[Rfam]
RNA sequence: GUUACCUUUAAUUCAGUCCCGUGAGACUGGCAAGGUGUUAUUAGACAGAAUGUUUGUCUAUUAAUGUGGAAAUGGUGUGUCCAUUUCUAUAUUUCUAUGCGUUAAGCACCUUGCCUUAUUAGGCAAGGUGCUUUUUCUA
Number, nucleotide and partner (000 for none) at each position: 001g000002u000003u037004a036005c035006c034007u033008u032009u000010a000011a000012u000013u030014c029015a028016g027017u026018c025019c000020c000021g000022u000023g000024a000025g018026a017027c016028u015029g014030g013031c000032a008033a007034g006035g005036u004037g003038u000039u000040a000041u000042u000043a000044g000045a000046c000047a000048g000049a000050a000051u000052g000053u000054u000055u000056g000057u000058c000059u000060a000061u000062u000063a093064a092065u091066g090067u089068g088069g087070a086071a085072a084073u083074g082075g081076u000077g000078u000079g000080u000081c075082c074083a073084u072085u071086u070087c069088u068089a067090u066091a065092u064093u063094u000095c000096u000097a000098u000099g000100c000101g000102u000103u000104a133105a132106g131107c130108a129109c128110c127111u126112u125113g124114c123115c122116u121117u000118a000119u000120u000121a116122g115123g114124c113125a112126a111127g110128g109129u108130g107131c106132u105133u104134u000135u000136u000137c000138u000139a000
This 139-nucleotide sequence from Ornithinibacillus halotolerans belongs to the Rfam family "PyrR binding site". The source organism's lineage runs through Bacteria, Bacillati, Bacillota, Bacilli and Ornithinibacillus. This family represents the PyrR binding site and terminator structure. This RNA structure is found upstream of a variety of genes involved in pyrimidine biosynthesis and transport. It scores 64 bits against the family's covariance model. It is annotated as a cis-regulatory element.